[Rfam]
RNA: Small nucleolar RNA SNORD11B
RNA sequence: UAUGGUCUGUGAUGAUGAUCUUAAUUACUGGCCUGAUAACUUAAUGAAGGCAGUUUGUCACUACCUCAUCUGAGACCUUU
Dot-bracket structure: .(.((((..................................................................)))).).